[Rfam]
RNA: mir-184 microRNA precursor family
Organism: Esox lucius
RNA sequence: UCGCUCACAUCUCCUUAUCACUUUUCCAGCCCAGCUAUCCAUUCCGUGUCUGUUGGACGGAGAACUGAUAAGGGCAUGUGUCUGA
Numbered sequence: 001u002c003g004c005u006c007a008c009a010u011c012u013c014c015u016u017a018u019c020a021c022u023u024u025u026c027c028a029g030c031c032c033a034g035c036u037a038u039c040c041a042u043u044c045c046g047u048g049u050c051u052g053u054u055g056g057a058c059g060g061a062g063a064a065c066u067g068a069u070a071a072g073g074g075c076a077u078g079u080g081u082c083u084g085a
Base pairs, nucleotide, nucleotide: 012074013073014072015071016070017069018068019067020066022064023063024062025061026060027059030056031055